[Rfam]
RNA sequence: CUGUCUCCGUCGGAGCUGAUGUGCGAAGGAAUCCCCGGCGGCGGCAGUGAGAGUAUUGAGACGUCCAUCGCACCGCGGGAGGCGCCGCACCUCCCGCGGCCCAAGAACGGGAGAGAACGCUGAGCGUUACAAC
Dot-bracket structure: (((((.((((((.......................)))))).))))).........................((((((((((.......))))))))))..................................

Shown here is a 133-nucleotide RNA from Corynebacterium yudongzhengii, a member of the family "atpB RNA". Taxonomically the source falls in Corynebacterium (Bacteria, Bacillati, Actinomycetota, Actinomycetes). It scores 116 bits against the family's covariance model. The base pairs follow the family's consensus structure, which is taken from published work.